[Rfam]
RNA sequence: ACGCCGAAAGGAGGUGAUCCGGAAGAUGCAUGACUCCCGGACGAGCGAGGUGGCUGCGGGCUAGCGGCCCGCCACCACACGUAGUGCGGUGCCGGUCCAGCACGUGAGUGCAGCGUGCAGCCGGCCGAAAUUCCACGCAGUCACCCGACCCGCGAGCUGCCGGUACCGUCCGGCCGGCUUCUCCGCCUUCAGAGGCGGAGGGACCUCGGCUCGCGGGUCGCCUGCG
Numbered sequence: 001a002c003g004c005c006g007a008a009a010g011g012a013g014g015u016g017a018u019c020c021g022g023a024a025g026a027u028g029c030a031u032g033a034c035u036c037c038c039g040g041a042c043g044a045g046c047g048a049g050g051u052g053g054c055u056g057c058g059g060g061c062u063a064g065c066g067g068c069c070c071g072c073c074a075c076c077a078c079a080c081g082u083a084g085u086g087c088g089g090u091g092c093c094g095g096u097c098c099a100g101c102a103c104g105u106g107a108g109u110g111c112a113g114c115g116u117g118c119a120g121c122c123g124g125c126c127g128a129a130a131u132u133c134c135a136c137g138c139a140g141u142c143a144c145c146c147g148a149c150c151c152g153c154g155a156g157c158u159g160c161c162g163g164u165a166c167c168g169u170c171c172g173g174c175c176g177g178c179u180u181c182u183c184c185g186c187c188u189u190c191a192g193a194g195g196c197g198g199a200g201g202g203a204c205c206u207c208g209g210c211u212c213g214c215g216g217g218u219c220g221c222c223u224g225c226g
Stems, first nucleotide, its partner, number of pairs: 014057003018053001059126004064121002067118002070115003146220013159178006
Annotation:
Actinobacteria sRNA Ms_IGR-5: a 226-nucleotide RNA from Actinobacteria bacterium OK074. The source organism's lineage runs through Bacteria, Bacillati, Actinomycetota and Actinomycetes. It scores 70 bits against the family's covariance model. Rfam classes the family as a small RNA. Pairs were carried over by alignment from the consensus structure.